[Rfam]
This 56-nucleotide RNA from Caenimonas koreensis belongs to the Rfam family "COG3860 RNA".
RNA sequence: GGGUCGUCAGUUCACCCAGGCGUUGCCGGAGCCACAUGCUCACGCUAAACCUGCAC
Numbered sequence: 001g002g003g004u005c006g007u008c009a010g011u012u013c014a015c016c017c018a019g020g021c022g023u024u025g026c027c028g029g030a031g032c033c034a035c036a037u038g039c040u041c042a043c044g045c046u047a048a049a050c051c052u053g054c055a056c
Stems, first nucleotide, its partner, number of pairs: 001017004029041004